The record is a 70-nucleotide RNA from Alligator sinensis, which matches "Mammalian CPEB3 ribozyme" in Rfam.
[Rfam]
RNA sequence: AGUGCAAGGCCACAGCAGAAGCACUCAUGGUACUGCUCUGUCAGAUUCCAAUAAAUCUAUGAAUUCUGCU
Number, nucleotide and partner (000 for none) at each position: 001a000002g000003u000004g000005c000006a000007a000008g038009g036010c035011c000012a000013c000014a070015g069016c068017a067018g066019a065020a064021g033022c000023a031024c000025u000026c000027a000028u000029g000030g000031u023032a000033c021034u000035g010036c009037u000038c008039u000040g000041u000042c000043a058044g057045a056046u055047u054048c000049c000050a000051a000052u000053a000054a047055a046056u045057c044058u043059a000060u000061g000062a000063a000064u020065u019066c018067u017068g016069c015070u014
The match comes from Rfam's covariance-model search (36 bits).